This 151-nucleotide RNA from Thermosporothrix hazakensis belongs to the Rfam family "FMN riboswitch aptamer (RFN element)". A search with the family's covariance model found it, with a score of 91 bits. The source organism's lineage runs through Bacteria, Chloroflexota, Ktedonobacteria, Ktedonobacterales and Thermosporothrix.
[Rfam]
Nucleotides: 151
Stems, first nucleotide, its partner, number of pairs: 004148007017045003047131002049120002051064004059118002068095005100116005122134003
Number, partner (000 for none) and nucleotide at each position: 001000u002000a003000a004148u005147g006146u007145c008144u009143u010142c011000g012000g013000g014000g015000c016000a017045g018044g019043g020000u021000g022000a023000g024000g025000g026000a027000c028000a029000u030000g031000a032000a033000a034000c035000u036000c037000c038000c039000a040000a041000u042000u043019c044018c045017c046000g047131a048130c049120c050119g051064g052063u053062g054061g055000u056000a057000c058000a059118g060117c061054c062053c063052a064051c065000g066000a067000c068095c069094u070093g071092c072091u073000u074000g075000c076000a077000u078000a079000g080000u081000c082000u083000c084000u085000g086000u087000g088000c089000a090000u091072a092071g093070u094069a095068g096000c097000u098000g099000a100116c101115c102114u103113g104112g105000g106000g107000a108000a109000g110000u111000u112104c113103c114102a115101g116100g117060g118059c119050c120049g121000a122134c123133g124132g125000u126000g127000a128000c129000a130048g131047u132124c133123c134122g135000g136000a137000u138000g139000g140000a141000a142010g143009a144008a145007g146006g147005c148004a149000a150000c151000u